[Rfam]
RNA sequence: AUGCACUUGUCAAUAUAUGAGGUCUCAUUCAUCUUUCUAGUGAGAUUUUGAGAUAAUGGUGCAUACAGGAAAAGCUGUUUUACAGUAGUGGCCAGACAACCAUAGAGAUAAAUCCACAGGUGAGUGGUCUAAAAUCUGAAUACCAUUUGUCUACUGAUUCUAUCUCACAUCU
Numbered sequence: 001a002u003g004c005a006c007u008u009g010u011c012a013a014u015a016u017a018u019g020a021g022g023u024c025u026c027a028u029u030c031a032u033c034u035u036u037c038u039a040g041u042g043a044g045a046u047u048u049u050g051a052g053a054u055a056a057u058g059g060u061g062c063a064u065a066c067a068g069g070a071a072a073a074g075c076u077g078u079u080u081u082a083c084a085g086u087a088g089u090g091g092c093c094a095g096a097c098a099a100c101c102a103u104a105g106a107g108a109u110a111a112a113u114c115c116a117c118a119g120g121u122g123a124g125u126g127g128u129c130u131a132a133a134a135u136c137u138g139a140a141u142a143c144c145a146u147u148u149g150u151c152u153a154c155u156g157a158u159u160c161u162a163u164c165u166c167a168c169a170u171c172u
Stems, first nucleotide, its partner, number of pairs: 002063005014055003018050012105166006112159001122148007
RNA: small nucleolar RNA snoR143